[Rfam]
RNA sequence: CGCAUAUCGGGGAAUGAAGUGCUCCCCGGGCGUUUGCCAUAACUGCCAAUACACAGGCUGAUGACUUCUGUGAUCGA
Numbered sequence: 001c002g003c004a005u006a007u008c009g010g011g012g013a014a015u016g017a018a019g020u021g022c023u024c025c026c027c028g029g030g031c032g033u034u035u036g037c038c039a040u041a042a043c044u045g046c047c048a049a050u051a052c053a054c055a056g057g058c059u060g061a062u063g064a065c066u067u068c069u070g071u072g073a074u075c076g077a
Stems, first nucleotide, its partner, number of pairs: 010026004016068005045058003
Fluoride riboswitch aptamer (crcB RNA motif): a 77-nucleotide RNA from Ethanoligenens harbinense. The family's consensus secondary structure is taken from published work. Gene Ontology terms of the family: positive regulation of gene expression and response to fluoride. A search with the family's covariance model found it, with a score of 35 bits.